Rfam assigns this 95-nucleotide sequence from Manihot esculenta to the family "MIR394 microRNA precursor family".
The organism belongs to Manihot, within Eukaryota.
Gene Ontology terms of the family: miRNA-mediated post-transcriptional gene silencing and RISC complex.
[Rfam]
RNA sequence: GUUGCAGAGCCAUUUUGGCAUUCUGUCCACCUCCAUAUAUAAGAGUUUAAUAAUAAUUCUUGGAGGUGGCCAGCAUGCCAAACUGGCUCUGUAAA
Numbered sequence: 001g002u003u004g005c006a007g008a009g010c011c012a013u014u015u016u017g018g019c020a021u022u023c024u025g026u027c028c029a030c031c032u033c034c035a036u037a038u039a040u041a042a043g044a045g046u047u048u049a050a051u052a053a054u055a056a057u058u059c060u061u062g063g064a065g066g067u068g069g070c071c072a073g074c075a076u077g078c079c080a081a082a083c084u085g086g087c088u089c090u091g092u093a094a095a
Stems, first nucleotide, its partner, number of pairs: 011085001015081006024072002027069008